[Rfam]
RNA sequence: CGCCUGUGACCGCUGAAUCCGCCUGUGUGCGGAACCGGGGACCCAAGUCUCAACUGGGGUGAAUCGGCACGUCAACGUGCCGUAGGGCAGCUUCCACGCCCGAAUCCGUCAGCUAACCCGGUAAGCGGUAUGGAAGCAAGGA
Numbered sequence: 001c002g003c004c005u006g007u008g009a010c011c012g013c014u015g016a017a018u019c020c021g022c023c024u025g026u027g028u029g030c031g032g033a034a035c036c037g038g039g040g041a042c043c044c045a046a047g048u049c050u051c052a053a054c055u056g057g058g059g060u061g062a063a064u065c066g067g068c069a070c071g072u073c074a075a076c077g078u079g080c081c082g083u084a085g086g087g088c089a090g091c092u093u094c095c096a097c098g099c100c101c102g103a104a105u106c107c108g109u110c111a112g113c114u115a116a117c118c119c120g121g122u123a124a125g126c127g128g129u130a131u132g133g134a135a136g137c138a139a140g141g142a
Stems, first nucleotide, its partner, number of pairs: 011127004018033005034122006044056002057107003065082004085101004
RNA: c-di-AMP riboswitch aptamer (ydaO/yuaA leader)